[Rfam]
RNA sequence: GGAGUGGACCGGGCCCCUCUGGCGGUUUUUUCAAACCGUGAUGUCGGACCACUUCG
Number, nucleotide and partner (000 for none) at each position: 001g000002g000003a000004g000005u000006g050007g049008a000009c047010c046011g045012g044013g000014c000015c000016c000017c000018u000019c000020u000021g000022g039023c038024g037025g036026u035027u034028u033029u000030u000031u000032c000033a028034a027035a026036c025037c024038g023039u022040g000041a000042u000043g000044u012045c011046g010047g009048a000049c007050c006051a000052c000053u000054u000055c000056g000
This 56-nucleotide RNA from Brucella rhizosphaerae belongs to the Rfam family "terC RNA". A search with the family's covariance model found it, with a score of 59 bits. By type it is a cis-regulatory element.